[Rfam]
RNA: Purine riboswitch aptamer
RNA sequence: CCCACGUUGGGAGAAUGCUCUUGUAUAAUUCCGAGAAUAUGGCUCGGAAGUCUCUACCGGACAGCCGUAAACUGUCCUGGCUACAAGGGCGUAAUUUUUUUAC
Numbered sequence: 001c002c003c004a005c006g007u008u009g010g011g012a013g014a015a016u017g018c019u020c021u022u023g024u025a026u027a028a029u030u031c032c033g034a035g036a037a038u039a040u041g042g043c044u045c046g047g048a049a050g051u052c053u054c055u056a057c058c059g060g061a062c063a064g065c066c067g068u069a070a071a072c073u074g075u076c077c078u079g080g081c082u083a084c085a086a087g088g089g090c091g092u093a094a095u096u097u098u099u100u101u102a103c
Stems, first nucleotide, its partner, number of pairs: 018089008029049007058079001059077006